terC RNA: a 58-nucleotide sequence from Brevundimonas sp. The base pairs follow the family's consensus structure, which is taken from published work. A search with the family's covariance model found it, with a score of 61 bits. By type it is a cis-regulatory element. NCBI's taxonomy places the organism under Bacteria, Pseudomonadati, Pseudomonadota, Caulobacteraceae, Brevundimonas.
[Rfam]
RNA sequence: ACGCGGGACCGGGCCCCUCUGGCGCGACCUUUCGGACGCGUGAUGUCGGACCGCAUCG
Dot-bracket structure: .....((.((((.........(((((.((....)).)))))....)))).))......